[Rfam]
Nucleotides: 036
Stems, first nucleotide, its partner, number of pairs: 001036001003034001005032004010028001012027005017021001
Number, partner (000 for none) and nucleotide at each position: 001036u002000u003034a004000u005032u006031u007030u008029c009000u010028g011000c012027u013026u014025c015024a016023a017021c018000a019000g020000u021017g022000c023016u024015u025014g026013a027012a028010u029008g030007g031006a032005a033000c034003u035000c036001a